[Rfam]
RNA sequence: UAAUGCCCCUCACCCACUCUCAAAAAUCCCCUGCGGGCGAGGGCCGGCGGGGAUA
Numbered sequence: 001u002a003a004u005g006c007c008c009c010u011c012a013c014c015c016a017c018u019c020u021c022a023a024a025a026a027u028c029c030c031c032u033g034c035g036g037g038c039g040a041g042g043g044c045c046g047g048c049g050g051g052g053a054u055a
Stems, first nucleotide, its partner, number of pairs: 007043005013037003017033001026054005
Shown here is a 55-nucleotide sequence from Propithecus coquereli, a member of the family "Antizyme RNA frameshifting stimulation element". For this family Rfam cites "Identification of a new antizyme mRNA +1 frameshifting stimulatory pseudoknot in a subset of diverse invertebrates and its apparent absence in intermediate species" (Ivanov et al., J Mol Biol, 2004). The source organism's lineage runs through Eukaryota, Bilateria, Chordata, Primates and Propithecus. The family's RNA type in Rfam is frameshift element. Rfam's curators write: This family represents a structural element which is found in antizyme mRNA and is known to promote frameshifting. Antizyme genes have have two partially overlapping open reading frames, the second, which encodes the functional protein requires +1 translational frameshifting. This frameshift is stimulated by a pseudoknot present 3' of the frameshift site in the antizyme mRNA. The frameshifting efficiency is dependent on the level of polyamines in the cell, when the polyamine concentration is high frameshifting is more likely to occur which leads to an increase in the quantity of functional antizyme produced. The functional antizyme acts to reduce ornithine decarboxylase (ODC) activity which leads to a drop in polyamines present in the cell. Therefore, this family can be thought of as a biosensor for intracellular free polyamines.